[Rfam]
RNA sequence: CUCGAUAAAGGCAAACCGGUUGCAAAGCCGGGACGCAAAGUCAAGGGCCGUCGCACUGCGACGGUAGCCUGACUGCCGAAA
Numbered sequence: 001c002u003c004g005a006u007a008a009a010g011g012c013a014a015a016c017c018g019g020u021u022g023c024a025a026a027g028c029c030g031g032g033a034c035g036c037a038a039a040g041u042c043a044a045g046g047g048c049c050g051u052c053g054c055a056c057u058g059c060g061a062c063g064g065u066a067g068c069c070u071g072a073c074u075g076c077c078g079a080a081a
Stems, first nucleotide, its partner, number of pairs: 003078002011036002016031006034067001039074004044070003047065003
RNA: c-di-GMP-I-GGC riboswitch aptamer